[Rfam]
A member of the RNA family "DUF805b RNA" from Kordia sp. SMS9, 36 nucleotides long.
The source organism's lineage runs through Bacteria, Pseudomonadati, Bacteroidota, Flavobacteriia and Kordia.
The family's RNA type in Rfam is cis-regulatory element.

RNA sequence: CAAGGGAAACUCGAAAACCUUCAAAAAGAGUAGAGA
Numbered sequence: 001c002a003a004g005g006g007a008a009a010c011u012c013g014a015a016a017a018c019c020u021u022c023a024a025a026a027a028g029a030g031u032a033g034a035g036a
Stems, first nucleotide, its partner, number of pairs: 002021004010035003